A member of the RNA family "mir-1302 microRNA precursor family" from Loxodonta africana, 52 nucleotides long. The source organism's lineage runs through Eukaryota, Bilateria, Craniata, Teleostomi and Loxodonta. Rfam links the family to the GO terms miRNA-mediated post-transcriptional gene silencing and RISC complex. For this family Rfam cites "Application of massively parallel sequencing to microRNA profiling and discovery in human embryonic stem cells" (Morin et al., Genome Res, 2008).
RNA sequence: UUUUUAGGAUAAGUGUGUCCCAUGCCAUAUUGGGGAUAUACUUACCUUAAAA
Number, nucleotide and partner (000 for none) at each position: 001u000002u000003u000004u000005u000006a048007g047008g046009a000010u044011a043012a042013g000014u040015g039016u038017g000018u036019c035020c034021c033022a031023u000024g000025c000026c000027a000028u000029a000030u000031u022032g000033g021034g020035g019036a018037u000038a016039u015040a014041c000042u012043u011044a010045c000046c008047u007048u006049a000050a000051a000052a000